[Rfam]
RNA sequence: GAAAGUAGGUGAUGGUGGUUGCGGGUUGAGUAUCUCAAUCUGAGGAAAGUCCGGGCACCCGAAAGACCAGACUUGCUGGGUAACGCCCAGUGCGAGCGAUCGUGAGGAUAGUGCCACAGAAACAUACCGCCAAUGAGUCAUCCGUCAACGGUCAUUUGUCAUUUGUGUUUGCAGAUGACAAGGGAUAAAAGACGAAGGACAAAUUUGGUAAGGGUGCAAAGGUGCGGUAAGAGCGCACCAGCAGCAUCGAGAGGUGCUGGCUCGGUAAACCCCGGUCGGGUGCAAGGUCGAAGGAACGACGGUUGGUCUUUUACCCGUUCCGCCAAGAGCGAACCGCAAGAGGCGUUUGGUAACAAGCGUCCCAGAUAGAUAACCGCCCUCCGGCUGCAUGGCAGUUCGGGGAACAGAACCCGGCUUACGACUACUUUCUCUA
Numbered sequence: 001g002a003a004a005g006u007a008g009g010u011g012a013u014g015g016u017g018g019u020u021g022c023g024g025g026u027u028g029a030g031u032a033u034c035u036c037a038a039u040c041u042g043a044g045g046a047a048a049g050u051c052c053g054g055g056c057a058c059c060c061g062a063a064a065g066a067c068c069a070g071a072c073u074u075g076c077u078g079g080g081u082a083a084c085g086c087c088c089a090g091u092g093c094g095a096g097c098g099a100u101c102g103u104g105a106g107g108a109u110a111g112u113g114c115c116a117c118a119g120a121a122a123c124a125u126a127c128c129g130c131c132a133a134u135g136a137g138u139c140a141u142c143c144g145u146c147a148a149c150g151g152u153c154a155u156u157u158g159u160c161a162u163u164u165g166u167g168u169u170u171g172c173a174g175a176u177g178a179c180a181a182g183g184g185a186u187a188a189a190a191g192a193c194g195a196a197g198g199a200c201a202a203a204u205u206u207g208g209u210a211a212g213g214g215u216g217c218a219a220a221g222g223u224g225c226g227g228u229a230a231g232a233g234c235g236c237a238c239c240a241g242c243a244g245c246a247u248c249g250a251g252a253g254g255u256g257c258u259g260g261c262u263c264g265g266u267a268a269a270c271c272c273c274g275g276u277c278g279g280g281u282g283c284a285a286g287g288u289c290g291a292a293g294g295a296a297c298g299a300c301g302g303u304u305g306g307u308c309u310u311u312u313a314c315c316c317g318u319u320c321c322g323c324c325a326a327g328a329g330c331g332a333a334c335c336g337c338a339a340g341a342g343g344c345g346u347u348u349g350g351u352a353a354c355a356a357g358c359g360u361c362c363c364a365g366a367u368a369g370a371u372a373a374c375c376g377c378c379c380u381c382c383g384g385c386u387g388c389a390u391g392g393c394a395g396u397u398c399g400g401g402g403a404a405c406a407g408a409a410c411c412c413g414g415c416u417u418a419c420g421a422c423u424a425c426u427u428u429c430u431c432u433a
Base pairs, nucleotide, nucleotide: 001429002428003427004426005425006424007423008422010420011419014378015377016376017375018374019373020372022042023041024040025039026038027037028036029035030034047417048416049415051414052413053412054411055410056282057281058280059279065310066309070277071276072275074274075273076090077089078088079087080086091105092103093102094101095100106272107271111270112269113266114265115264127213128212129209130208131207132206133205221239222238223237224236225235226234241261242259243258244257245256246255247254248253286335287334288333293321294320295319296318297317298316301315302314303313305311342361343360344359345358346357347356348355349354
Shown here is a 433-nucleotide RNA sequence from Oscillatoriales cyanobacterium M59_W2019_021, a member of the family "Bacterial RNase P class A".
The family's RNA type in Rfam is ribozyme.
Gene Ontology terms of the family: tRNA processing, ribonuclease P activity and dimeric ribonuclease P complex.
Lineage of the source: Bacteria > Bacillati > Cyanophyceae > Oscillatoriophycideae > Oscillatoriales.
From the family's description: Ribonuclease P (RNase P) is a ubiquitous endoribonuclease, found in archaea, bacteria and eukarya as well as chloroplasts and mitochondria.